A member of the RNA family "FMN riboswitch aptamer (RFN element)" from Desulfobaculum bizertense, 150 nucleotides long.
RNA sequence: UCUUAUUCUCAGGGCGGGGUGGAAAUCCCCACCGGCGGUAGCCUGACAAAGCAUCAGGAAGCCCGCGAGCGCGUUCUCAUUGGGAGACACGUUGCAGAUCUGGUCGAAAUCCAGAGCCGACGGUAAUAGUCCGGAUAAAAGAGAGUAAGA
Dot-bracket structure: ..((((((((......(((.......))).[[((((((......................[[))))..(((.....................)))...(((((.......)))))]])).(((.....]]))).......))))))))..